Small nucleolar RNA SNORD60: a 91-nucleotide sequence from Phaetusa simplex.
Taxonomically the source falls in Phaetusa (Eukaryota, Deuterostomia, Sauria, Charadriiformes).
By type it is a C/D-box small nucleolar RNA.
The family is grouped with related families in Rfam's "SNORD60 clan".
RNA sequence: GGCCGGGGAUGAGCUCUAUCUAUUUUUCUGACACCUCGUCUGAGGGCGGCGGGCGUCCGCGGCCCCUGGUGACUAUCCAUGGCUGAGGCCC
Numbered sequence: 001g002g003c004c005g006g007g008g009a010u011g012a013g014c015u016c017u018a019u020c021u022a023u024u025u026u027u028c029u030g031a032c033a034c035c036u037c038g039u040c041u042g043a044g045g046g047c048g049g050c051g052g053g054c055g056u057c058c059g060c061g062g063c064c065c066c067u068g069g070u071g072a073c074u075a076u077c078c079a080u081g082g083c084u085g086a087g088g089c090c091c
Stems, first nucleotide, its partner, number of pairs: 001090004046063002049060004